[Rfam]
RNA sequence: UGGUAGAUGCACCCUGAUAACUAACUCCCCUAGCUAGUUGUUGGCUAAUACCAACACCUGGGGGAUUUUUUC
Numbered sequence: 001u002g003g004u005a006g007a008u009g010c011a012c013c014c015u016g017a018u019a020a021c022u023a024a025c026u027c028c029c030c031u032a033g034c035u036a037g038u039u040g041u042u043g044g045c046u047a048a049u050a051c052c053a054a055c056a057c058c059u060g061g062g063g064g065a066u067u068u069u070u071u072c
Base pairs, nucleotide, nucleotide: 002013003012004011027064028063029062030061031060032059033058
The record is a 72-nucleotide sequence from Chlorogloeopsis fritschii, which matches "Nitrogen stress-induced RNA 1" in Rfam. Rfam 15.1 lists 962 matches to the family in 163 species. The family's RNA type in Rfam is small RNA. The literature on the family includes a 2010 paper in J Mol Biol by Ionescu et al., "Heterocyst-specific transcription of NsiR1, a non-coding RNA encoded in a tandem array of direct repeats in cyanobacteria". Taxonomically the source falls in Chlorogloeopsis fritschii (Bacteria, Bacillati, Chlorogloeopsidaceae, Chlorogloeopsis).